[Rfam]
RNA: Small nucleolar RNA Z102/R77
Organism: Asparagus officinalis
RNA sequence: GGAUGAAAUGAUGAGUGAUUUGUUUCCCUAUUGGUUUGAUAGCCGAGAUGAUGGCUACCAUUGUAUUAGCUCUAUCUGAUCCCCC
Numbered sequence: 001g002g003a004u005g006a007a008a009u010g011a012u013g014a015g016u017g018a019u020u021u022g023u024u025u026c027c028c029u030a031u032u033g034g035u036u037u038g039a040u041a042g043c044c045g046a047g048a049u050g051a052u053g054g055c056u057a058c059c060a061u062u063g064u065a066u067u068a069g070c071u072c073u074a075u076c077u078g079a080u081c082c083c084c085c
Stems, first nucleotide, its partner, number of pairs: 002084001005081001038058001041056004